The record is a 179-nucleotide RNA sequence from Nocardioides luteus, which matches "c-di-AMP riboswitch aptamer (ydaO/yuaA leader)" in Rfam.
A search with the family's covariance model found it, with a score of 54 bits.
The literature on the family includes a 2004 paper in Proc Natl Acad Sci U S A by Barrick et al., "New RNA motifs suggest an expanded scope for riboswitches in bacterial genetic control".

[Rfam]
RNA sequence: GCGGGUGCCGCGCUUAGUCCAGGUCCGCUUCGGGGCGGGCCAGGAGCCGGGGAACCACACCGAUCAUCUGGGGUGUAUCCGCCGCGAGAGCGAUCCGGGAGACCGGGUCGAGGAGCGGUGGUAGGGCAGGUCGUGCCUGAACCCGUCAGCUCACCCGGUAGGCGUCAACGACUACACAA
Numbered sequence: 001g002c003g004g005g006u007g008c009c010g011c012g013c014u015u016a017g018u019c020c021a022g023g024u025c026c027g028c029u030u031c032g033g034g035g036c037g038g039g040c041c042a043g044g045a046g047c048c049g050g051g052g053a054a055c056c057a058c059a060c061c062g063a064u065c066a067u068c069u070g071g072g073g074u075g076u077a078u079c080c081g082c083c084g085c086g087a088g089a090g091c092g093a094u095c096c097g098g099g100a101g102a103c104c105g106g107g108u109c110g111a112g113g114a115g116c117g118g119u120g121g122u123a124g125g126g127c128a129g130g131u132c133g134u135g136c137c138u139g140a141a142c143c144c145g146u147c148a149g150c151u152c153a154c155c156c157g158g159u160a161g162g163c164g165u166c167a168a169c170g171a172c173u174a175c176a177c178a179a
Stems, first nucleotide, its partner, number of pairs: 011164004018045003046159006056070002071144003079121007124138004